[Rfam]
RNA sequence: AACGUUCAUCUCUUUGAGAUUUUAGUUGUUCUUUAAAUGAGCAGAUAGAGAGACGGAAGUAGGGUGUCAACCGAAGGAACGUGCC
Numbered sequence: 001a002a003c004g005u006u007c008a009u010c011u012c013u014u015u016g017a018g019a020u021u022u023u024a025g026u027u028g029u030u031c032u033u034u035a036a037a038u039g040a041g042c043a044g045a046u047a048g049a050g051a052g053a054c055g056g057a058a059g060u061a062g063g064g065u066g067u068c069a070a071c072c073g074a075a076g077g078a079a080c081g082u083g084c085c
Stems, first nucleotide, its partner, number of pairs: 003081005009053008056082001062072002
Description: Shown here is an 85-nucleotide RNA from Aliterella atlantica, a member of the family "Glutamine riboswitch aptamer (glnA leader)". The organism belongs to Aliterella atlantica, within Bacteria.